The family of this 160-nucleotide sequence from Plasmodium falciparum is "small nucleolar RNA snoR26". The literature on the family includes a 2007 paper in RNA by Chakrabarti et al., "Structural RNAs of known and unknown function identified in malaria parasites by comparative genomics and RNA analysis". Pairs were carried over by alignment from the consensus structure.
RNA sequence: AAGGCCUUAAAAAAGGUUAACAAUAAUUCCGGGUGUAAAAAUGUUAUGGGGAUGUUUUUAUUAAAGGCUAAAAAAAAAGGUUUAUGCAAUGAAAAAACAAGUUAAGCAUUUUUUUUUAAGUUGCCGACCCACCUGACUUUGGAACAACCAAAAUUAUUGU
Numbered sequence: 001a002a003g004g005c006c007u008u009a010a011a012a013a014a015g016g017u018u019a020a021c022a023a024u025a026a027u028u029c030c031g032g033g034u035g036u037a038a039a040a041a042u043g044u045u046a047u048g049g050g051g052a053u054g055u056u057u058u059u060a061u062u063a064a065a066g067g068c069u070a071a072a073a074a075a076a077a078a079g080g081u082u083u084a085u086g087c088a089a090u091g092a093a094a095a096a097a098c099a100a101g102u103u104a105a106g107c108a109u110u111u112u113u114u115u116u117u118a119a120g121u122u123g124c125c126g127a128c129c130c131a132c133c134u135g136a137c138u139u140u141g142g143a144a145c146a147a148c149c150a151a152a153a154u155u156a157u158u159g160u
Stems, first nucleotide, its partner, number of pairs: 021159008